[Rfam]
RNA: mir-3492 microRNA precursor family
Organism: Schistosoma curassoni
RNA sequence: AGCCUUGUAUAUCCGUGCCGAGAUUUCGUCACACACCAGACCACAAAGACUGAUGAGACUACCAAGAUAAGUGAGGAG
Numbered sequence: 001a002g003c004c005u006u007g008u009a010u011a012u013c014c015g016u017g018c019c020g021a022g023a024u025u026u027c028g029u030c031a032c033a034c035a036c037c038a039g040a041c042c043a044c045a046a047a048g049a050c051u052g053a054u055g056a057g058a059c060u061a062c063c064a065a066g067a068u069a070a071g072u073g074a075g076g077a078g
Stems, first nucleotide, its partner, number of pairs: 003076004008071001010069004016064002021060002024058007